[Rfam]
The family of this 424-nucleotide RNA sequence from Campylobacter hominis is "Bacterial RNase P class A". The family's RNA type in Rfam is ribozyme. The organism belongs to Campylobacter hominis, within Bacteria.
RNA sequence: UCGGUGCGGCAAGUGGUCGCUUGAAAAAGAGGAAAGUCCGAGCUGCUAUAAGACAGGAUUGCGUCUAACGGACGCCGAGGGCAACCUUAGGGAAAGUGCAACAGAAAACAGACUGCCGAUUUUCUUUAUUUUGUGCAAAAUGUUAUUUGAAAUACGCUUAAAUUAACGUCUGAAAUUUAAAAAUUUCACUUUUAAAAGCACAAAUUUAAAUGUGUAUAAAAUAAAGAAAAUCGGCGAUGGUGAAACGGUGAGGUAAGAGCUCACCAGCAUUUUUGGAAACUUAAAUGGCUUUGCAAACCCAAUCUGCAGCAAGAAGUUAUGGUUUUGUCUUAUGAUUUUGAUACUUCGCUGAAAUCGCUUUGCAAAAAGCGAUGUAGAUAAAUGGCCACAAAAACAGAACUCGGCUUACAGCCGCGCCGAAACA
Dot-bracket structure: ((((((((((..((((((.(((....)))....[[[.[[[[[((((....[[...((((((((((.....)))))(((((....)))).)((...(((((............(.(((((((((((((((((((((((...........................................................................)))))))))))))))))))))))...).......((((((.......)))))).((((((..(....)..))))).)..)))..)))))))))))))...((((......((.(...]]).))........))))......((((((((....))))))))..........))))))..........]]]]]]]]...))))))))))....
Numbered sequence: 001u002c003g004g005u006g007c008g009g010c011a012a013g014u015g016g017u018c019g020c021u022u023g024a025a026a027a028a029g030a031g032g033a034a035a036g037u038c039c040g041a042g043c044u045g046c047u048a049u050a051a052g053a054c055a056g057g058a059u060u061g062c063g064u065c066u067a068a069c070g071g072a073c074g075c076c077g078a079g080g081g082c083a084a085c086c087u088u089a090g091g092g093a094a095a096g097u098g099c100a101a102c103a104g105a106a107a108a109c110a111g112a113c114u115g116c117c118g119a120u121u122u123u124c125u126u127u128a129u130u131u132u133g134u135g136c137a138a139a140a141u142g143u144u145a146u147u148u149g150a151a152a153u154a155c156g157c158u159u160a161a162a163u164u165a166a167c168g169u170c171u172g173a174a175a176u177u178u179a180a181a182a183a184u185u186u187c188a189c190u191u192u193u194a195a196a197a198g199c200a201c202a203a204a205u206u207u208a209a210a211u212g213u214g215u216a217u218a219a220a221a222u223a224a225a226g227a228a229a230a231u232c233g234g235c236g237a238u239g240g241u242g243a244a245a246c247g248g249u250g251a252g253g254u255a256a257g258a259g260c261u262c263a264c265c266a267g268c269a270u271u272u273u274u275g276g277a278a279a280c281u282u283a284a285a286u287g288g289c290u291u292u293g294c295a296a297a298c299c300c301a302a303u304c305u306g307c308a309g310c311a312a313g314a315a316g317u318u319a320u321g322g323u324u325u326u327g328u329c330u331u332a333u334g335a336u337u338u339u340g341a342u343a344c345u346u347c348g349c350u351g352a353a354a355u356c357g358c359u360u361u362g363c364a365a366a367a368a369g370c371g372a373u374g375u376a377g378a379u380a381a382a383u384g385g386c387c388a389c390a391a392a393a394a395c396a397g398a399a400c401u402c403g404g405c406u407u408a409c410a411g412c413c414g415c416g417c418c419g420a421a422a423c424a
Stems, first nucleotide, its partner, number of pairs: 001420010013389006020029003034407003038404005043309004051331002056305005061075005076090001077088004091300002096298002098294003113239001115235023247265006267289001268287005275280001313347004323335002326332001354373008